Ribosomal S15 leader: a 119-nucleotide RNA from Providencia sneebia.
By type it is a cis-regulatory leader.
The match comes from Rfam's covariance-model search (105 bits).
On this family, see Benard et al., Biochimie 1996: "Pseudoknot and translational control in the expression of the S15 ribosomal protein".
Its family is annotated with regulation of translation, ncRNA-mediated in the Gene Ontology.
The source organism's lineage runs through Bacteria, Enterobacterales, Morganellaceae, Providencia and Providencia sneebia.
RNA sequence: GUGAGAUGCUAAAUUAGAGAUUGGCGCUCAUUACAUAUACAUUUAUUUUUUUGGAGUUCAUUAUGUCUCUAAGUACUGAAGCAAAAGCAAAAAUCGUUGCUGAAUUUGGUCGCGAUGCU
Number, nucleotide and partner (000 for none) at each position: 001g000002u000003g000004a000005g000006a000007u026008g025009c024010u023011a022012a021013a000014u000015u000016a000017g000018a000019g000020a000021u012022u011023g010024g009025c008026g007027c000028u000029c000030a000031u000032u000033a000034c000035a000036u000037a000038u000039a000040c000041a000042u000043u000044u000045a000046u000047u000048u000049u000050u073051u072052u071053g070054g069055a068056g067057u000058u000059c000060a000061u000062u000063a000064u000065g000066u000067c056068u055069c054070u053071a052072a051073g050074u000075a000076c000077u000078g000079a000080a000081g000082c000083a000084a000085a000086a000087g000088c000089a000090a000091a000092a000093a000094u000095c000096g000097u000098u000099g000100c000101u000102g000103a000104a000105u000106u000107u000108g000109g000110u000111c000112g000113c000114g000115a000116u000117g000118c000119u000